RNA sequence: CAAAAAUGGAGACCAGCGACCAUUGUAAAAAACGGGGCGUAUUCCGAAAAGCCAUAUGAGUAGGAAUAAA
Number, nucleotide and partner (000 for none) at each position: 001c000002a000003a000004a000005a000006a023007u022008g021009g020010a000011g000012a000013c000014c000015a000016g000017c000018g000019a000020c009021c008022a007023u006024u000025g000026u000027a000028a000029a000030a000031a000032a000033c000034g000035g000036g053037g052038c051039g000040u000041a000042u000043u064044c063045c000046g000047a000048a000049a000050a000051g038052c037053c036054a000055u000056a000057u000058g000059a000060g000061u000062a000063g044064g043065a000066a000067u000068a000069a000070a000